[Rfam]
RNA: TPP riboswitch aptamer (THI element)
Organism: Flavobacterium cellulosilyticum
RNA sequence: AUCACACUUUAGGGGUGUCUACAAAAUUGUAGGCUGAGAUUUUACCCUCGAACCUGAUCUAGUUCAUACUAGCGUAGGAAAAAGUAAGAUGACUUCC
Dot-bracket structure: .....(((((((((..(((((........)))))..........))))....((((..((((......))))..))))..)))))............